c-di-AMP riboswitch aptamer (ydaO/yuaA leader): a 174-nucleotide RNA sequence from Thermomonospora curvata.

RNA sequence: GCGUUCCGGCCGCCCGAACGGCCGGGCGGGGGAGGCGAGGGAGCCGGGGACCCACCUUUCCCGGGGUGAAUCGGCGCAUCCCCCACCGGAUCCCGUCCAGGGGACGGAUGUGCCGUAGGGCGACUUCCAGCCCGAACCCGUCAGCUAACCCGGUAGGCGUCUGGAAGAAGGAGU
Number, nucleotide and partner (000 for none) at each position: 001g000002c000003g000004u042005u041006c040007c000008g000009g000010c000011c000012g000013c000014c000015c000016g000017a000018a000019c000020g000021g000022c000023c000024g000025g000026g000027c000028g000029g000030g000031g000032g000033a000034g000035g000036c000037g000038a000039g000040g006041g005042a004043g154044c153045c152046g151047g150048g149049g000050a000051c000052c000053c063054a000055c000056c000057u000058u000059u000060c000061c000062c000063g053064g139065g138066g137067u000068g000069a000070a000071u000072c115073g114074g113075c112076g111077c110078a109079u108080c107081c106082c000083c000084c000085a000086c000087c000088g000089g000090a000091u000092c000093c000094c000095g000096u000097c000098c000099a000100g000101g000102g000103g000104a000105c000106g081107g080108a079109u078110g077111u076112g075113c074114c073115g072116u000117a000118g133119g132120g131121c130122g000123a000124c000125u000126u000127c000128c000129a000130g121131c120132c119133c118134g000135a000136a000137c066138c065139c064140g000141u000142c000143a000144g000145c000146u000147a000148a000149c048150c047151c046152g045153g044154u043155a000156g000157g000158c000159g000160u000161c000162u000163g000164g000165a000166a000167g000168a000169a000170g000171g000172a000173g000174u000